Rfam assigns this 76-nucleotide RNA from Pipistrellus kuhlii to the family "mir-9229 microRNA precursor family".
The organism belongs to Pipistrellus, within Eukaryota.
RNA sequence: GAGAAACCAUUAUGGGGCAAGAUUUGCUUCAGUGGGGCUUUGGUGAUCACUGAAUCUGCCUCCUGAGUAUUUCUCU
Numbered sequence: 001g002a003g004a005a006a007c008c009a010u011u012a013u014g015g016g017g018c019a020a021g022a023u024u025u026g027c028u029u030c031a032g033u034g035g036g037g038c039u040u041u042g043g044u045g046a047u048c049a050c051u052g053a054a055u056c057u058g059c060c061u062c063c064u065g066a067g068u069a070u071u072u073c074u075c076u
Stems, first nucleotide, its partner, number of pairs: 001075006010066003014062006021056003029053007037044002
Dot-bracket structure: ((((((...(((.((((((.(((.....(((((((.((....))..)))))))))))))))).)))...)))))).